[Rfam]
RNA: Eukaryotic small subunit ribosomal RNA, nucleotides 1639 to 1806
Organism: Orchesella cincta
RNA sequence: CCGCCCGUCGCUACUACCGAUCGAGUGAUUUAGUGAGGCCUUUGGACUGGUCUUCGUUAUGGCUUUCGGGUCGUGCCGGAGUACCGGGAAGAUGACCAAACUUGAUUACUUAGAGGAAGUAAAAGUCGUAACAAGGUUUCCGUAGGUGAACCUGCGGAAGGAUCAUUA
Number, nucleotide and partner (000 for none) at each position: 001c135002c000003g132004c000005c000006c128007g127008u000009c125010g000011c000012u121013a120014c119015u118016a000017c116018c115019g000020a000021u112022c000023g111024a110025g109026u108027g107028a106029u105030u104031u000032a102033g101034u100035g000036a000037g097038g096039c000040c094041u000042u092043u091044g000045g000046a000047c087048u086049g085050g084051u083052c081053u080054u079055c078056g077057u000058u000059a000060u000061g071062g000063c000064u000065u000066u000067c000068g000069g000070g000071u061072c000073g000074u000075g000076c000077c056078g055079g054080a053081g052082u000083a051084c050085c049086g048087g047088g000089a000090a000091g043092a042093u000094g040095a000096c038097c037098a000099a000100a034101c033102u032103u000104g030105a029106u028107u027108a026109c025110u024111u023112a021113g000114a000115g018116g017117a000118a015119g014120u013121a012122a000123a000124a000125g009126u000127c007128g006129u000130a000131a000132c003133a000134a000135g001136g000137u160138u159139u158140c157141c156142g155143u154144a153145g152146g151147u000148g000149a000150a000151c146152c145153u144154g143155c142156g141157g140158a139159a138160g137161g000162a000163u000164c000165a000166u000167u000168a000